[Rfam]
RNA sequence: CGCCGGGCCACGAUCUCCCACCGGAUCGCGACCCAUCUGCAAGGAUGGGAGCU
Numbered sequence: 001c002g003c004c005g006g007g008c009c010a011c012g013a014u015c016u017c018c019c020a021c022c023g024g025a026u027c028g029c030g031a032c033c034c035a036u037c038u039g040c041a042a043g044g045a046u047g048g049g050a051g052c053u
Base pairs, nucleotide, nucleotide: 011028012027013026014025015024016023033048034047035046036045037044038043
RNA: serC leader
Organism: Candidatus Defluviicoccus seviourii